[Rfam]
Annotation:
The family of this 77-nucleotide RNA sequence from Syntrophotalea carbinolica is "c-di-GMP-I-GGC riboswitch aptamer". For this family Rfam cites "Bioinformatic analysis of riboswitch structures uncovers variant classes with altered ligand specificity" (Weinberg et al., Proc Natl Acad Sci U S A, 2017). A search with the family's covariance model found it, with a score of 62 bits. The family's consensus secondary structure is taken from published work.

RNA sequence: UUAACAUAGGGCAAAACUGGAGUAAUCCAGUGACGCAAAGCCACGGGUCCUUGCCGAGGAUAGCCGGGUUGCUGAAG
Numbered sequence: 001u002u003a004a005c006a007u008a009g010g011g012c013a014a015a016a017c018u019g020g021a022g023u024a025a026u027c028c029a030g031u032g033a034c035g036c037a038a039a040g041c042c043a044c045g046g047g048u049c050c051u052u053g054c055c056g057a058g059g060a061u062a063g064c065c066g067g068g069u070u071g072c073u074g075a076a077g
Base pairs, nucleotide, nucleotide: 001077004073011036012035016031017030018029019028020027021026034063039070040069041068042067044066045065046064047061048060049059